[Rfam]
RNA sequence: GAACGCGAGAGUUUGAUCCUGGCUCAGAUUGAACGCUGGCGGCAUGCCUAACACAUGCAAGUCGUACGGCAGCAGGUCCUUCGGGAUGCUGGCGAGUGGCGGACGGGUGAGUAAUGCGUAGGAACCUAUCCUUUUGUGGGGGACAACCCAGGGAAACUUGGGCUAAUACCGCAUAAGCCCUGAGGGGGAAAGCGGGGGAUCUUCGGACCUCGUGCUGAAGGAGGGGCCUACGUCCGAUUAGCUAGUUGGUGGGGUAAAGGCCUACCAAGGCGACGAUCGGUAGCUGGUCUGAGAGGACGACCAGCCACACUGGGACUGAGACACGGCCCAGACUCCUACGGGAGGCAGCAGUGGGGAAUUUUUCGCAAUGGGGGCAACCCUGACGAAGCAAUGCCGCGUGGAUGAAGAAGGCCUUCGGGUUGUAAAGUCCUUUCGUGGGGGACGAAAAGGCGGAUCCGAAUACGGUCUGCUGUUGACGUGAACCCAAGAAGAAGCACCGGCUAACUCCGUGCCAGCAGCCGCGGUAAUACGGAGGGUGCGAGCGUUAAUCGGAAUUACUG
Numbered sequence: 001g002a003a004c005g006c007g008a009g010a011g012u013u014u015g016a017u018c019c020u021g022g023c024u025c026a027g028a029u030u031g032a033a034c035g036c037u038g039g040c041g042g043c044a045u046g047c048c049u050a051a052c053a054c055a056u057g058c059a060a061g062u063c064g065u066a067c068g069g070c071a072g073c074a075g076g077u078c079c080u081u082c083g084g085g086a087u088g089c090u091g092g093c094g095a096g097u098g099g100c101g102g103a104c105g106g107g108u109g110a111g112u113a114a115u116g117c118g119u120a121g122g123a124a125c126c127u128a129u130c131c132u133u134u135u136g137u138g139g140g141g142g143a144c145a146a147c148c149c150a151g152g153g154a155a156a157c158u159u160g161g162g163c164u165a166a167u168a169c170c171g172c173a174u175a176a177g178c179c180c181u182g183a184g185g186g187g188g189a190a191a192g193c194g195g196g197g198g199a200u201c202u203u204c205g206g207a208c209c210u211c212g213u214g215c216u217g218a219a220g221g222a223g224g225g226g227c228c229u230a231c232g233u234c235c236g237a238u239u240a241g242c243u244a245g246u247u248g249g250u251g252g253g254g255u256a257a258a259g260g261c262c263u264a265c266c267a268a269g270g271c272g273a274c275g276a277u278c279g280g281u282a283g284c285u286g287g288u289c290u291g292a293g294a295g296g297a298c299g300a301c302c303a304g305c306c307a308c309a310c311u312g313g314g315a316c317u318g319a320g321a322c323a324c325g326g327c328c329c330a331g332a333c334u335c336c337u338a339c340g341g342g343a344g345g346c347a348g349c350a351g352u353g354g355g356g357a358a359u360u361u362u363u364c365g366c367a368a369u370g371g372g373g374g375c376a377a378c379c380c381u382g383a384c385g386a387a388g389c390a391a392u393g394c395c396g397c398g399u400g401g402a403u404g405a406a407g408a409a410g411g412c413c414u415u416c417g418g419g420u421u422g423u424a425a426a427g428u429c430c431u432u433u434c435g436u437g438g439g440g441g442a443c444g445a446a447a448a449g450g451c452g453g454a455u456c457c458g459a460a461u462a463c464g465g466u467c468u469g470c471u472g473u474u475g476a477c478g479u480g481a482a483c484c485c486a487a488g489a490a491g492a493a494g495c496a497c498c499g500g501c502u503a504a505c506u507c508c509g510u511g512c513c514a515g516c517a518g519c520c521g522c523g524g525u526a527a528u529a530c531g532g533a534g535g536g537u538g539c540g541a542g543c544g545u546u547a548a549u550c551g552g553a554a555u556u557a558c559u560g
Base pairs, nucleotide, nucleotide: 009025010024011023012022013021027550028549029548030547032546033545034544035543036542037541039397040396041395042394043393044392045390046389047355052353053352054351056350057349058348061100062099063098066097067096069093070092076087077086078085079084107308108307109306116233117232118231119230120229121228122227125225126224130221131220132219133218134217136215138172140170141169147162148161149160150159151158152157178187179186180185192213193212194211195210196209197208234280235279236278241271242270243269246268247267248266249265250264251263252262253261283305284304285303286302287298288297289296290295310331311330312329313328314327333344334343335342336341361387363386364385365384369382370381371380372379373378400430401429402428403427410421411420412419413418434491436486437485438484439483444477450470451469452468453467454466455465494539495538496537497536498535505534506533507532508531509530515522516521
RNA: Bacterial small subunit ribosomal RNA, nucleotides 1 to 560
Organism: Acidithiobacillus caldus